Rfam assigns this 85-nucleotide sequence from Natronobacillus azotifigens to the family "Group II catalytic intron D1-D4-1". A search with the family's covariance model found it, with a score of 62 bits. The source organism's lineage runs through Bacteria, Bacillati, Bacillota, Bacillaceae and Natronobacillus. From the family's description: Group II introns are found in rRNA, tRNA and mRNA of organelles in fungi, plants and protists, and also in mRNA in bacteria.
RNA sequence: UAACUGAACAGUCAACUGUUCGCUGAACUACCAGAAGUCAGCAGAAGCCAUAGUACUAGAUUCUUCUACAGAAUUUAGUAAGGGC
Numbered sequence: 001u002a003a004c005u006g007a008a009c010a011g012u013c014a015a016c017u018g019u020u021c022g023c024u025g026a027a028c029u030a031c032c033a034g035a036a037g038u039c040a041g042c043a044g045a046a047g048c049c050a051u052a053g054u055a056c057u058a059g060a061u062u063c064u065u066c067u068a069c070a071g072a073a074u075u076u077a078g079u080a081a082g083g084g085c
Stems, first nucleotide, its partner, number of pairs: 001025002005022007038045002047085003056078006